The family of this 57-nucleotide RNA sequence from Epimedium koreanum is "Plastid-ndhJ 3UTR RNA". By type it is a cis-regulatory element. For this family Rfam cites "Retrograde signaling in plants: A critical review focusing on the GUN pathway and beyond" (Richter et al., Plant Commun, 2023). The organism belongs to Epimedium, within Eukaryota. The family has 50 seed sequences and 869 matches in Rfam 15.1. Rfam's curators put it in the seed alignment. The family's consensus secondary structure was predicted with LocARNA. Rfam's curators write: Plastid ndhJ is a non-coding RNA (ncRNA) present in plastids. It was identified as a short stem-loop motif in the 3 prime untranslate region (3UTR) of ndhJ gene.
RNA sequence: CUAUGAACUUUGUACCGCGCUCAUCAUAUAGAUGGGUUCUAGAAAGUCAGAUAGAGG
Numbered sequence: 001c002u003a004u005g006a007a008c009u010u011u012g013u014a015c016c017g018c019g020c021u022c023a024u025c026a027u028a029u030a031g032a033u034g035g036g037u038u039c040u041a042g043a044a045a046g047u048c049a050g051a052u053a054g055a056g057g
Stems, first nucleotide, its partner, number of pairs: 019037002022034004